[Rfam]
RNA sequence: UCCGAUAUGGUCUAGUGGCUAGGAUUUGCCGCUCUCAUAGCAGAGUCAGUUCACUGUACAGUGCCGGCAAGGCCCGGGUUCGAUUCCCGGUGUCGGAA
Numbered sequence: 001u002c003c004g005a006u007a008u009g010g011u012c013u014a015g016u017g018g019c020u021a022g023g024a025u026u027u028g029c030c031g032c033u034c035u036c037a038u039a040g041c042a043g044a045g046u047c048a049g050u051u052c053a054c055u056g057u058a059c060a061g062u063g064c065c066g067g068c069a070a071g072g073c074c075c076g077g078g079u080u081c082g083a084u085u086c087c088c089g090g091u092g093u094c095g096g097a098a
Base pairs, nucleotide, nucleotide: 001097002096003095004094005093006092007091010025011024012023013022027069028068029067030066031065074090075089076088077087078086

The family of this 98-nucleotide RNA sequence from Alternaria burnsii is "tRNA".